This 76-nucleotide RNA from Methanofervidicoccus abyssi belongs to the Rfam family "tRNA".
Pairs were carried over by alignment from the consensus structure, which is taken from published work.
RNA sequence: AGCGGGGUGGGGUAGCCAGGCCGAUCCCGCCGGGCUCAUAACCCGGAGAUCCGAAGUUCAAAUCUUCGCCCCGCUA
Numbered sequence: 001a002g003c004g005g006g007g008u009g010g011g012g013u014a015g016c017c018a019g020g021c022c023g024a025u026c027c028c029g030c031c032g033g034g035c036u037c038a039u040a041a042c043c044c045g046g047a048g049a050u051c052c053g054a055a056g057u058u059c060a061a062a063u064c065u066u067c068g069c070c071c072c073g074c075u076a
Stems, first nucleotide, its partner, number of pairs: 001075007010028003030046005052068005

The source organism's lineage runs through Archaea, Methanobacteriota, Methanococci, Methanococcales and Methanofervidicoccus.